[Rfam]
RNA sequence: CUGCCGGUAUCUCACAGAGCCGGACUAUAAAAAUAAAGUGUUAUCUAGGUUUCGACCUGCAUCCUUUUAGGAGCGGGAGCGGAGG
Numbered sequence: 001c002u003g004c005c006g007g008u009a010u011c012u013c014a015c016a017g018a019g020c021c022g023g024a025c026u027a028u029a030a031a032a033a034u035a036a037a038g039u040g041u042u043a044u045c046u047a048g049g050u051u052u053c054g055a056c057c058u059g060c061a062u063c064c065u066u067u068u069a070g071g072a073g074c075g076g077g078a079g080c081g082g083a084g085g
Stems, first nucleotide, its partner, number of pairs: 003025001004023005010018002053081002056077005062072003